[Rfam]
RNA sequence: CCCCUUGAAACCCGCGCCCUGCUGACCUAGAUAUACCCUGUUCCCUCGGGAACUAUGGACAUAAACGCGCUCGUAAUAAGCGGAUCGGACCCGGGGGCGGUACCCGGCGUCUCCACCAAAUACCUCUCUUCAGCCAUCGUUUGGGGCUGGCAAGAGAUUGGAUCAUGGGGACGAAAUAGGAUCGACGGACGUCUAAAGGGGUUUGCUUUGUCUCGGUGAGAUACCACCGUUAUCGGUUCAUUCAAGCUAGUUGCAAACGACAACAAAGCUCCGAUGGCUCUCGCAGCGUAAGCUGUGCGAAAUAUCGAAAUCUAAGCCCUGACGCCUAGCAGCAUCAGGCGGGGUUCGCAGGUACCUGGCAACAGAAACCUGCACC
Numbered sequence: 001c002c003c004c005u006u007g008a009a010a011c012c013c014g015c016g017c018c019c020u021g022c023u024g025a026c027c028u029a030g031a032u033a034u035a036c037c038c039u040g041u042u043c044c045c046u047c048g049g050g051a052a053c054u055a056u057g058g059a060c061a062u063a064a065a066c067g068c069g070c071u072c073g074u075a076a077u078a079a080g081c082g083g084a085u086c087g088g089a090c091c092c093g094g095g096g097g098c099g100g101u102a103c104c105c106g107g108c109g110u111c112u113c114c115a116c117c118a119a120a121u122a123c124c125u126c127u128c129u130u131c132a133g134c135c136a137u138c139g140u141u142u143g144g145g146g147c148u149g150g151c152a153a154g155a156g157a158u159u160g161g162a163u164c165a166u167g168g169g170g171a172c173g174a175a176a177u178a179g180g181a182u183c184g185a186c187g188g189a190c191g192u193c194u195a196a197a198g199g200g201g202u203u204u205g206c207u208u209u210g211u212c213u214c215g216g217u218g219a220g221a222u223a224c225c226a227c228c229g230u231u232a233u234c235g236g237u238u239c240a241u242u243c244a245a246g247c248u249a250g251u252u253g254c255a256a257a258c259g260a261c262a263a264c265a266a267a268g269c270u271c272c273g274a275u276g277g278c279u280c281u282c283g284c285a286g287c288g289u290a291a292g293c294u295g296u297g298c299g300a301a302a303u304a305u306c307g308a309a310a311u312c313u314a315a316g317c318c319c320u321g322a323c324g325c326c327u328a329g330c331a332g333c334a335u336c337a338g339g340c341g342g343g344g345u346u347c348g349c350a351g352g353u354a355c356c357u358g359g360c361a362a363c364a365g366a367a368a369c370c371u372g373c374a375c376c
Stems, first nucleotide, its partner, number of pairs: 040053005057213005067206002069202004081191002085188003091107005108173007214229004220239002223237003342357004348373006
The record is a 376-nucleotide sequence from Celeribacter halophilus, which matches "Alphaproteobacteria transfer-messenger RNA" in Rfam. It scores 308 bits against the family's covariance model. The base pairs follow the family's consensus structure, which is taken from published work. From the family's description: Bacterial tmRNA, also known as 10Sa RNA or SsrA, is named for its dual tRNA and mRNA-like properties. Its role is to liberate the mRNA from a stalled ribosome. To accomplish this part of the tmRNA is used as a reading frame that ends in a translation stop signal.